[Rfam]
Nucleotides: 085
Base pairs, nucleotide, nucleotide: 002084004082009077010076011075013060014059015058022054023053024052025051026050027049028048038072039071040068041067042066043065044064
Number, partner (000 for none) and nucleotide at each position: 001000a002084u003000c004082u005000a006000a007000a008000a009077g010076g011075g012000a013060u014059g015058c016000u017000a018000u019000g020000a021000u022054c023053c024052u025051c026050a027049c028048c029000u030000u031000g032000c033000a034000a035000c036000a037000c038072g039071g040068u041067c042066a043065c044064u045000u046000u047000c048028g049027g050026u051025g052024a053023g054022g055000g056000g057000a058015g059014c060013g061000a062000a063000u064044a065043g066042u067041g068040a069000g070000a071039c072038c073000g074000g075011c076010c077009c078000a079000g080000g081000g082004g083000a084002g085000g

About this RNA
c-di-GMP-II-GAG riboswitch aptamer: an 85-nucleotide sequence from Deinococcus yavapaiensis. For this family Rfam cites "Bioinformatic analysis of riboswitch structures uncovers variant classes with altered ligand specificity" (Weinberg et al., Proc Natl Acad Sci U S A, 2017). The base pairs follow the family's consensus structure, which is taken from published work. Taxonomically the source falls in Deinococcus yavapaiensis (Bacteria, Deinococcales, Deinococcaceae, Deinococcus).